[Rfam]
RNA sequence: GGAGAAAGCCAGACGAUCGCAGACUGAGGGCUAAAGCCCCUGGAUGAGGAAAGUCCGGGCUCCACAGGGUCAGGAUGCCGGCUAGUUACCGGUAAAGGCGACUUUAAGGAUAGUGCAACAGAAAUAAACCGCUGCGCUUUUGCAAAAGCGACAGUAAGGGUGGAAAGGUGAGGUAAGAGCUUACCGGGUUCCCGGCGACGGGAACUGUCUCUGUAAACCCCAUCCGGAGCAACACCGUGGUGAGACUUAAGCUUGGACCCGAGCGUCUCUAGGAGGUGGCUUGAGCCGGGGUGAAAAUCCCGGCCUAGAUAAAUGAUCGUCCCAGACAGAACCCGGCUUAUCGGUUUUCUCCGCCU
Dot-bracket structure: ((((((((((((((((((.((..(.(.(.........).).)..))....[[[.[[[[[((((....[....(((((((((.......))))(((((....)))).)((...(((((...........(((((.((((((....))))))..)))..)).......((((((.......))))))(((((((((....))))))))..)..)))..)))))))))))))...((((.....(((((.....((((..].)))).))))).....))))......((((((((....))))))))..........)))))))..........]]]]]]]].).))))))))))....
Numbered sequence: 001g002g003a004g005a006a007a008g009c010c011a012g013a014c015g016a017u018c019g020c021a022g023a024c025u026g027a028g029g030g031c032u033a034a035a036g037c038c039c040c041u042g043g044a045u046g047a048g049g050a051a052a053g054u055c056c057g058g059g060c061u062c063c064a065c066a067g068g069g070u071c072a073g074g075a076u077g078c079c080g081g082c083u084a085g086u087u088a089c090c091g092g093u094a095a096a097g098g099c100g101a102c103u104u105u106a107a108g109g110a111u112a113g114u115g116c117a118a119c120a121g122a123a124a125u126a127a128a129c130c131g132c133u134g135c136g137c138u139u140u141u142g143c144a145a146a147a148g149c150g151a152c153a154g155u156a157a158g159g160g161u162g163g164a165a166a167g168g169u170g171a172g173g174u175a176a177g178a179g180c181u182u183a184c185c186g187g188g189u190u191c192c193c194g195g196c197g198a199c200g201g202g203a204a205c206u207g208u209c210u211c212u213g214u215a216a217a218c219c220c221c222a223u224c225c226g227g228a229g230c231a232a233c234a235c236c237g238u239g240g241u242g243a244g245a246c247u248u249a250a251g252c253u254u255g256g257a258c259c260c261g262a263g264c265g266u267c268u269c270u271a272g273g274a275g276g277u278g279g280c281u282u283g284a285g286c287c288g289g290g291g292u293g294a295a296a297a298u299c300c301c302g303g304c305c306u307a308g309a310u311a312a313a314u315g316a317u318c319g320u321c322c323c324a325g326a327c328a329g330a331a332c333c334c335g336g337c338u339u340a341u342c343g344g345u346u347u348u349c350u351c352c353g354c355c356u
Stems, first nucleotide, its partner, number of pairs: 001352010011341001012321007020046002024042001026040001028038001051339003055336005060229004068258001073225005078092004093107001094105004108220002113218002115214003129159002131155003135150006167185006186209001187206008233278004242269005252263004285304008